[Rfam]
RNA sequence: UCGUUUCGAUAUUGAGGCGUCAGACUUGGGACUGACGGGGAGUAUUACCCGAUGCCACCCUGAAAUGGGUGACAAUCGAACUCCUGUAAAAACUCAACACAGAUUAGCUCUGCUACACAAUAUCAAACG
Numbered sequence: 001u002c003g004u005u006u007c008g009a010u011a012u013u014g015a016g017g018c019g020u021c022a023g024a025c026u027u028g029g030g031a032c033u034g035a036c037g038g039g040g041a042g043u044a045u046u047a048c049c050c051g052a053u054g055c056c057a058c059c060c061u062g063a064a065a066u067g068g069g070u071g072a073c074a075a076u077c078g079a080a081c082u083c084c085u086g087u088a089a090a091a092a093c094u095c096a097a098c099a100c101a102g103a104u105u106a107g108c109u110c111u112g113c114u115a116c117a118c119a120a121u122a123u124c125a126a127a128c129g
Stems, first nucleotide, its partner, number of pairs: 002129004008124007018037006038085004053078002056071005
Dot-bracket structure: .((((..(((((((...((((((........))))))((((...........((.(((((......))))).....))...))))................................))))))).))))
EFASI RNA: a 129-nucleotide RNA sequence from Salmonella enterica. Rfam classes the family as a small RNA. The base pairs follow the family's consensus structure, which is taken from published work.